[Rfam]
RNA sequence: GUGAUGCAGUGAUGACCGCAUAGUUCAGCAGAUUAAACCGUGAAGAUGAUCUGUUGUCUUUCGCUCCUAGCUGACGUAUCAA
Numbered sequence: 001g002u003g004a005u006g007c008a009g010u011g012a013u014g015a016c017c018g019c020a021u022a023g024u025u026c027a028g029c030a031g032a033u034u035a036a037a038c039c040g041u042g043a044a045g046a047u048g049a050u051c052u053g054u055u056g057u058c059u060u061u062c063g064c065u066c067c068u069a070g071c072u073g074a075c076g077u078a079u080c081a082a
Stems, first nucleotide, its partner, number of pairs: 004079004
A member of the RNA family "Small nucleolar RNA snR60/Z15/Z230/Z193/J17" from Amphiprion ocellaris, 82 nucleotides long. It is annotated as a C/D-box small nucleolar RNA. The pairing is the family consensus, mapped onto this sequence. NCBI's taxonomy places the organism under Eukaryota, Teleostomi, Euteleostomi, Percomorphaceae, Amphiprion.